[Rfam]
RNA sequence: UGGUACCUGACGGGAACGAUCGUAUAGUACGAGAGGAACUACGAUUGGUCACCACUGGUGUACCGGUUGUCCGAGAGGGCACGUGCCGGGCAGCUACGUGACACGGGGUAAGAGCUGAACGCAUCUAAGCUCGAAACCCACCUGGAAAAGAGGUACCGUUGAGGUCACUCGUAGAAGACGAGUUCGAUAGACUCGGGGUGUGCGCACCGAGGCAACGAGGUGUUAAGCCCGCGAGCACUAACAGACCGAAG
Numbered sequence: 001u002g003g004u005a006c007c008u009g010a011c012g013g014g015a016a017c018g019a020u021c022g023u024a025u026a027g028u029a030c031g032a033g034a035g036g037a038a039c040u041a042c043g044a045u046u047g048g049u050c051a052c053c054a055c056u057g058g059u060g061u062a063c064c065g066g067u068u069g070u071c072c073g074a075g076a077g078g079g080c081a082c083g084u085g086c087c088g089g090g091c092a093g094c095u096a097c098g099u100g101a102c103a104c105g106g107g108g109u110a111a112g113a114g115c116u117g118a119a120c121g122c123a124u125c126u127a128a129g130c131u132c133g134a135a136a137c138c139c140a141c142c143u144g145g146a147a148a149a150g151a152g153g154u155a156c157c158g159u160u161g162a163g164g165u166c167a168c169u170c171g172u173a174g175a176a177g178a179c180g181a182g183u184u185c186g187a188u189a190g191a192c193u194c195g196g197g198g199u200g201u202g203c204g205c206a207c208c209g210a211g212g213c214a215a216c217g218a219g220g221u222g223u224u225a226a227g228c229c230c231g232c233g234a235g236c237a238c239u240a241a242c243a244g245a246c247c248g249a250a251g
Base pairs, nucleotide, nucleotide: 001158002157003156004155005154006153007152008151011144012143013142014141017047018046019045020044021043022042023041024040048102049101050100051099052098056096057095058094063089064088065087066086067085068081069080070079071078072077105139106138107137112132113131114130115129116128163247164246165245166244167183168182169181170180171179188240189239190238192235193234194233195232196230197229198228204223205222206221207220208219211216
Description: The family of this 251-nucleotide part of an RNA from Halalkalicoccus jeotgali is "Archaeal large subunit ribosomal RNA". Rfam's curators put it in the seed alignment. NCBI's taxonomy places the organism under Archaea, Methanobacteriati, Methanobacteriota, Halalkalicoccaceae, Halalkalicoccus jeotgali. Pairs were carried over by alignment from the consensus structure, which is taken from published work.